[Rfam]
Background:
The record is a 62-nucleotide RNA from Mycobacterium talmoniae, which matches "Fluoride riboswitch aptamer (crcB RNA motif)" in Rfam. A search with the family's covariance model found it, with a score of 45 bits.
RNA sequence: UUCCGACUAGGCGAUGAGGCUCGCCGUAACCGCCGCACCUGGCUAAUGGCCUCUACCGAAUG
Numbered sequence: 001u002u003c004c005g006a007c008u009a010g011g012c013g014a015u016g017a018g019g020c021u022c023g024c025c026g027u028a029a030c031c032g033c034c035g036c037a038c039c040u041g042g043c044u045a046a047u048g049g050c051c052u053c054u055a056c057c058g059a060a061u062g
Base pairs, nucleotide, nucleotide: 010025011024012023013022016053017052018051019050020049021048032043033042034041035040
Dot-bracket structure: .........[[[[..((((((]]]]......((((....))))....)))))).........